[Rfam]
RNA sequence: AUUGGCUGUGAUGACAACAACUUGCCCUCUCUUAGUGUGUUACUCAUGUGAUGAUGAGUCUGUUAAUGUUCUGAGCCAAU
Numbered sequence: 001a002u003u004g005g006c007u008g009u010g011a012u013g014a015c016a017a018c019a020a021c022u023u024g025c026c027c028u029c030u031c032u033u034a035g036u037g038u039g040u041u042a043c044u045c046a047u048g049u050g051a052u053g054a055u056g057a058g059u060c061u062g063u064u065a066a067u068g069u070u071c072u073g074a075g076c077c078a079a080u
Stems, first nucleotide, its partner, number of pairs: 001080006
Record summary:
This 80-nucleotide sequence from Desmophyllum pertusum belongs to the Rfam family "Small nucleolar RNA SNORD103/SNORD85". Taxonomically the source falls in Desmophyllum (Eukaryota, Metazoa, Eumetazoa, Vacatina). It scores 47 bits against the family's covariance model. Rfam links the family to the GO terms RNA processing and nucleolus. By type it is a C/D-box small nucleolar RNA.